[Rfam]
RNA sequence: UCCUGAAAAAGGCAAACCACCCGAAAGGGUGGGGCGCAAAGUUACCGGUCUAACGGGGUUUUCCCCCACGACAGCGGGACUGCCAGG
Numbered sequence: 001u002c003c004u005g006a007a008a009a010a011g012g013c014a015a016a017c018c019a020c021c022c023g024a025a026a027g028g029g030u031g032g033g034g035c036g037c038a039a040a041g042u043u044a045c046c047g048g049u050c051u052a053a054c055g056g057g058g059u060u061u062u063c064c065c066c067c068a069c070g071a072c073a074g075c076g077g078g079a080c081u082g083c084c085a086g087g
Stems, first nucleotide, its partner, number of pairs: 012037002017032006040081004045077003048072003055066004
RNA: c-di-GMP-I riboswitch aptamer